Rfam assigns this 75-nucleotide RNA sequence from Xanthomonas oryzae to the family "Xanthomonas sRNA sX9". Taxonomically the source falls in Xanthomonas oryzae pv. oryzae (Bacteria, Pseudomonadota, Gammaproteobacteria, Xanthomonas). A search with the family's covariance model found it, with a score of 48 bits. Rfam classes the family as a small RNA.

[Rfam]
RNA sequence: AUGUGGUGCUCGUACACUCCGGUUCCCGCCCGCCGUCCGCACCCACGUCGCAGUUGCUCGCUACGUUGUUUAGCC
Numbered sequence: 001a002u003g004u005g006g007u008g009c010u011c012g013u014a015c016a017c018u019c020c021g022g023u024u025c026c027c028g029c030c031c032g033c034c035g036u037c038c039g040c041a042c043c044c045a046c047g048u049c050g051c052a053g054u055u056g057c058u059c060g061c062u063a064c065g066u067u068g069u070u071u072a073g074c075c
Stems, first nucleotide, its partner, number of pairs: 002016004020035004047074002050071001052069001